[Rfam]
RNA sequence: UUCUCCCGGACCAAAGGACUCCUCCUCCCACCUGCGGUCCGGAACAAGCCGGUUCUCCUCCUCCCGAACCGGCUCUGGAAAGAGCGCUCGCCGAACUCCUCCUCCCAUCGGCGAGCGCUUUUC
Numbered sequence: 001u002u003c004u005c006c007c008g009g010a011c012c013a014a015a016g017g018a019c020u021c022c023u024c025c026u027c028c029c030a031c032c033u034g035c036g037g038u039c040c041g042g043a044a045c046a047a048g049c050c051g052g053u054u055c056u057c058c059u060c061c062u063c064c065c066g067a068a069c070c071g072g073c074u075c076u077g078g079a080a081a082g083a084g085c086g087c088u089c090g091c092c093g094a095a096c097u098c099c100u101c102c103u104c105c106c107a108u109c110g111g112c113g114a115g116c117g118c119u120u121u122u123c
Base pairs, nucleotide, nucleotide: 007041008040009039011037012036015033016032017031047074048073049072050071051070052069053068084118085117086116087115088114089113090112091111092110093109094108
Notes
Shown here is a 123-nucleotide RNA sequence from Pannonibacter phragmitetus, a member of the family "Alphaproteobacterial ar14". Pairs were carried over by alignment from the consensus structure. It is annotated as a small RNA. Rfam describes the family as follows. Smr14C2 was renamed NfeR1 (Nodule Formation Efficiency RNA) highly expressed in salt stress and during the symbiotic interaction on legume roots. The organism belongs to Pannonibacter, within Bacteria.